Source information: TPP riboswitch aptamer (THI element): a 137-nucleotide RNA sequence from Kosakonia cowanii. The base pairs follow the family's consensus structure, which is taken from published work. Vitamin B(1) in its active form thiamin pyrophosphate (TPP) is an essential coenzyme that is synthesised by coupling of pyrimidine and thiazole moieties in bacteria. The match comes from Rfam's covariance-model search (66 bits).
RNA sequence: UUUUUCUUGUCGGAGUGCCACUCUUUUACACCCACGCUUUCUGAAAGCUGAGGUGUAAAAAGGCUGAGACCGUUAAUUCGGGAUCCGCGGAACCUGAUCAGGCUAAUACCUGCGAAGGGAACAAGAGUAAUCCAUCC
Numbered sequence: 001u002u003u004u005u006c007u008u009g010u011c012g013g014a015g016u017g018c019c020a021c022u023c024u025u026u027u028a029c030a031c032c033c034a035c036g037c038u039u040u041c042u043g044a045a046a047g048c049u050g051a052g053g054u055g056u057a058a059a060a061a062g063g064c065u066g067a068g069a070c071c072g073u074u075a076a077u078u079c080g081g082g083a084u085c086c087g088c089g090g091a092a093c094c095u096g097a098u099c100a101g102g103c104u105a106a107u108a109c110c111u112g113c114g115a116a117g118g119g120a121a122c123a124a125g126a127g128u129a130a131u132c133c134a135u136c137c
Stems, first nucleotide, its partner, number of pairs: 006125005011087004016081001017064003071080002093118003099112004